[Rfam]
Shown here is an 89-nucleotide sequence from endosymbiont of Tevnia jerichonana, a member of the family "Glycine riboswitch aptamer". A search with the family's covariance model found it, with a score of 69 bits. Rfam links the family to the GO term glycine biosynthetic process. Rfam 15.1 lists 9,425 matches to the family in 5,228 species.
RNA sequence: CGAUACCCCGUGGGAGAGCUCGGCAGAGGCCGACGCCGAAGGCGCAAAUCCGCCCGGAAUCGCUCAGGCAAAAGGACCGCGGGGAGUGG
Dot-bracket structure: .....((((((((......((((......)))).(((((..(((....(......)....))))).))).......)))))))).....
Numbered sequence: 001c002g003a004u005a006c007c008c009c010g011u012g013g014g015a016g017a018g019c020u021c022g023g024c025a026g027a028g029g030c031c032g033a034c035g036c037c038g039a040a041g042g043c044g045c046a047a048a049u050c051c052g053c054c055c056g057g058a059a060u061c062g063c064u065c066a067g068g069c070a071a072a073a074g075g076a077c078c079g080c081g082g083g084g085a086g087u088g089g
Stems, first nucleotide, its partner, number of pairs: 006084008020033004035069003038065002042063003049056001